[Rfam]
RNA: Small nucleolar RNA Z173
RNA sequence: CAGCGCCGAUGAUGAGUUCACAAAUGUACUAGGUUGAAUUCUGAUCGAAGAACCUCUCUUGGUUCGAACGAUGGCCACCUGUGUUCCUCUCGAUCUGAGGCGCUG
Numbered sequence: 001c002a003g004c005g006c007c008g009a010u011g012a013u014g015a016g017u018u019c020a021c022a023a024a025u026g027u028a029c030u031a032g033g034u035u036g037a038a039u040u041c042u043g044a045u046c047g048a049a050g051a052a053c054c055u056c057u058c059u060u061g062g063u064u065c066g067a068a069c070g071a072u073g074g075c076c077a078c079c080u081g082u083g084u085u086c087c088u089c090u091c092g093a094u095c096u097g098a099g100g101c102g103c104u105g
Base pairs, nucleotide, nucleotide: 001105002104003103004102005101006100007099